[Rfam]
Description:
Rfam assigns this 92-nucleotide RNA from Actinokineospora fastidiosa to the family "Glycine riboswitch aptamer". The source organism's lineage runs through Bacteria, Bacillati, Actinomycetota, Actinomycetes and Actinokineospora. The base pairs follow the family's consensus structure.
RNA sequence: CGAGCCAGGACGGGAGAGCCUCCGCCAGCGAGCGGGGCACCGAAGGAGCAAACUCCCCGGAAUCUCUCAGGUAAAGCUACCGUCCCAGGCCA
Numbered sequence: 001c002g003a004g005c006c007a008g009g010a011c012g013g014g015a016g017a018g019c020c021u022c023c024g025c026c027a028g029c030g031a032g033c034g035g036g037g038c039a040c041c042g043a044a045g046g047a048g049c050a051a052a053c054u055c056c057c058c059g060g061a062a063u064c065u066c067u068c069a070g071g072u073a074a075a076g077c078u079a080c081c082g083u084c085c086c087a088g089g090c091c092a
Base pairs, nucleotide, nucleotide: 008085009084010083011082012081013080020037021036022035023034039072040071041070042068043067046066047065048064053059